Shown here is an 84-nucleotide RNA sequence from Chiloscyllium punctatum, a member of the family "Small nucleolar RNA SNORD11B". The family's consensus secondary structure was predicted with WAR. A search with the family's covariance model found it, with a score of 73 bits.

RNA sequence: UGGCAGCAGUGAUGAUGAUGACUUUGUCACUCAUGCUGAUUAAAUGCUGAAGGUUUUCAGUCACUACCUCAUCUGAGGCUGUCA
Numbered sequence: 001u002g003g004c005a006g007c008a009g010u011g012a013u014g015a016u017g018a019u020g021a022c023u024u025u026g027u028c029a030c031u032c033a034u035g036c037u038g039a040u041u042a043a044a045u046g047c048u049g050a051a052g053g054u055u056u057u058c059a060g061u062c063a064c065u066a067c068c069u070c071a072u073c074u075g076a077g078g079c080u081g082u083c084a
Base pairs, nucleotide, nucleotide: 002083003082004081005080006079007078